The record is a 566-nucleotide RNA from Lipomyces starkeyi, which matches "RNase MRP" in Rfam. The family has 66 seed sequences and 3,510 matches in Rfam 15.1. Its Rfam clan is "RNaseP clan". Rfam classes the family as a ribozyme. RNase MRP is an enzymatically active ribonucleoprotein with two distinct roles in eukaryotes. In mitochondria it plays a direct role in the initiation of mitochondrial DNA replication.

RNA sequence: UUCUCGCUCAAAAAAUUGCAUUCGAAGCUUACUACCAAAAGCAUGCAGGAGAAGGAUGGAUUUUAUUCAUUCCUUCUUUUGCAUGCUUUUUAUAUGCUUUGGGGAAAGGUAGUUGCAUUGUUUGACGGUUUAAUUCAGCAGGCUAACAUGAAUAUAGUCUCCGGUCAAUCGGGUUGUCUCAAUGAGAUAAAAAGUGGAAACGCACGGACUUAAAACUCCGGUCGUAAUUCGAAUCUAACGUUUUCCAGGCCGUCGCAACGGCUCACGAUACUUUGGCUCGCCCAGAGCAGAGGUGUUGCGGCAUAUACGGCUGUUUGGCAAAACCGUCUGGAUGUUCGUUGCCCCGCCAAAUGCAGUCCUUCGGGUCUGCGUUUGUUCGACGCUGUUGAAUUCGCCUUUGUCGUGCAGCCACGGGUUGGUAAUUCCCGGUUUCACUGCGUGGCGAAGCCGGGGGGUAUCACAUUCGUUUGGUAAUCAUAGUUAUGCAAUUCAAAUCGACGUUUGUCUUCGUUUCUCGGAGGCAUCAUGUCGGUUAGAACCCAAUGGAGCUUAUUCUUGAAGUGAGG
Numbered sequence: 001u002u003c004u005c006g007c008u009c010a011a012a013a014a015a016u017u018g019c020a021u022u023c024g025a026a027g028c029u030u031a032c033u034a035c036c037a038a039a040a041g042c043a044u045g046c047a048g049g050a051g052a053a054g055g056a057u058g059g060a061u062u063u064u065a066u067u068c069a070u071u072c073c074u075u076c077u078u079u080u081g082c083a084u085g086c087u088u089u090u091u092a093u094a095u096g097c098u099u100u101g102g103g104g105a106a107a108g109g110u111a112g113u114u115g116c117a118u119u120g121u122u123u124g125a126c127g128g129u130u131u132a133a134u135u136c137a138g139c140a141g142g143c144u145a146a147c148a149u150g151a152a153u154a155u156a157g158u159c160u161c162c163g164g165u166c167a168a169u170c171g172g173g174u175u176g177u178c179u180c181a182a183u184g185a186g187a188u189a190a191a192a193a194g195u196g197g198a199a200a201c202g203c204a205c206g207g208a209c210u211u212a213a214a215a216c217u218c219c220g221g222u223c224g225u226a227a228u229u230c231g232a233a234u235c236u237a238a239c240g241u242u243u244u245c246c247a248g249g250c251c252g253u254c255g256c257a258a259c260g261g262c263u264c265a266c267g268a269u270a271c272u273u274u275g276g277c278u279c280g281c282c283c284a285g286a287g288c289a290g291a292g293g294u295g296u297u298g299c300g301g302c303a304u305a306u307a308c309g310g311c312u313g314u315u316u317g318g319c320a321a322a323a324c325c326g327u328c329u330g331g332a333u334g335u336u337c338g339u340u341g342c343c344c345c346g347c348c349a350a351a352u353g354c355a356g357u358c359c360u361u362c363g364g365g366u367c368u369g370c371g372u373u374u375g376u377u378c379g380a381c382g383c384u385g386u387u388g389a390a391u392u393c394g395c396c397u398u399u400g401u402c403g404u405g406c407a408g409c410c411a412c413g414g415g416u417u418g419g420u421a422a423u424u425c426c427c428g429g430u431u432u433c434a435c436u437g438c439g440u441g442g443c444g445a446a447g448c449c450g451g452g453g454g455g456u457a458u459c460a461c462a463u464u465c466g467u468u469u470g471g472u473a474a475u476c477a478u479a480g481u482u483a484u485g486c487a488a489u490u491c492a493a494a495u496c497g498a499c500g501u502u503u504g505u506c507u508u509c510g511u512u513u514c515u516c517g518g519a520g521g522c523a524u525c526a527u528g529u530c531g532g533u534u535a536g537a538a539c540c541c542a543a544u545g546g547a548g549c550u551u552a553u554u555c556u557u558g559a560a561g562u563g564a565g566g
Stems, first nucleotide, its partner, number of pairs: 002566007009558003014490006022102007038089019106551003415461002422456006428449004432442004493534009